[Rfam]
RNA sequence: CAAUGGAGGAAGGAUCCAUCUGGGGAGUUGUCGGUAAACCCUGGUAGCUGACGAGCGGCCUUGCCGGGCAACCGGUCUGGUCGAAGCCUCGUGACAAAGGCCGCCUCUGGGCGGUUGUUGGGGCUGCCGGAGGCGUCGCCACGCACCAGGCGGGGAUCGCCGAGCUAACGAAC
Number, nucleotide and partner (000 for none) at each position: 001c000002a000003a000004u000005g000006g000007a000008g000009g000010a000011a000012g000013g000014a000015u000016c000017c000018a000019u000020c044021u043022g042023g041024g040025g000026a000027g000028u000029u000030g000031u000032c000033g000034g000035u000036a000037a000038a000039c000040c024041c023042u022043g021044g020045u000046a000047g000048c000049u000050g000051a092052c091053g090054a089055g088056c083057g082058g081059c080060c079061u000062u000063g000064c000065c074066g000067g072068g000069c000070a000071a000072c067073c000074g065075g000076u000077c000078u000079g060080g059081u058082c057083g056084a000085a000086g000087c000088c055089u054090c053091g052092u051093g000094a000095c000096a000097a000098a000099g116100g115101c114102c113103g112104c111105c000106u000107c000108u000109g000110g000111g104112c103113g102114g101115u100116u099117g000118u000119u000120g000121g000122g000123g000124c000125u000126g000127c000128c000129g000130g000131a000132g000133g000134c000135g000136u000137c000138g000139c000140c000141a000142c000143g000144c000145a000146c000147c000148a000149g000150g000151c000152g000153g000154g000155g000156a000157u000158c000159g000160c000161c000162g000163a000164g000165c000166u000167a000168a000169c000170g000171a000172a000173c000
Rfam assigns this 173-nucleotide RNA from Falsiroseomonas stagni to the family "Group II catalytic intron D1-D4-4". Rfam's curators write: Group II introns are found in rRNA, tRNA and mRNA of organelles in fungi, plants and protists, and also in mRNA in bacteria. The family has 90 seed sequences and 840 matches in Rfam 15.1. The pairing is the family consensus, mapped onto this sequence. Rfam links the family to the GO term Group II intron splicing. The literature on the family includes a 2003 paper in Crit Rev Biochem Mol Biol by Lehmann and Schmidt, "Group II introns: structure and catalytic versatility of large natural ribozymes".